RNA sequence: AGCUGGGUCCCGCGCAACGGUAGGUUAUGAACCCCGCCAGAUCCGGAAGGAAGCAACGGUAGUAGCUGAUUCCGUGUGCCGCGGGGGAGCCCAGCUAUC
Numbered sequence: 001a002g003c004u005g006g007g008u009c010c011c012g013c014g015c016a017a018c019g020g021u022a023g024g025u026u027a028u029g030a031a032c033c034c035c036g037c038c039a040g041a042u043c044c045g046g047a048a049g050g051a052a053g054c055a056a057c058g059g060u061a062g063u064a065g066c067u068g069a070u071u072c073c074g075u076g077u078g079c080c081g082c083g084g085g086g087g088a089g090c091c092c093a094g095c096u097a098u099c
Base pairs, nucleotide, nucleotide: 004093005092006091007090008089009085010084011083012082013081014080015076017075018074019073020072022070023067024066025065026064027063028062034059035058036057042051043050044049